Small nucleolar RNA SNORD45: an 81-nucleotide RNA sequence from Pelodiscus sinensis. Taxonomically the source falls in Pelodiscus (Eukaryota, Dipnotetrapodomorpha, Testudines, Cryptodira). Rfam 15.1 lists 1,629 matches to the family in 521 species.
[Rfam]
RNA sequence: GGUCAAUGAUGAGACUUGGCAUGUAUUAUCUGACUCAAGUUGAAGAUAAAUGCUUUAGCUCUAGAAUUACUCUGAGACCUA
Numbered sequence: 001g002g003u004c005a006a007u008g009a010u011g012a013g014a015c016u017u018g019g020c021a022u023g024u025a026u027u028a029u030c031u032g033a034c035u036c037a038a039g040u041u042g043a044a045g046a047u048a049a050a051u052g053c054u055u056u057a058g059c060u061c062u063a064g065a066a067u068u069a070c071u072c073u074g075a076g077a078c079c080u081a
Stems, first nucleotide, its partner, number of pairs: 001079004
Dot-bracket structure: ((((.......................................................................))))..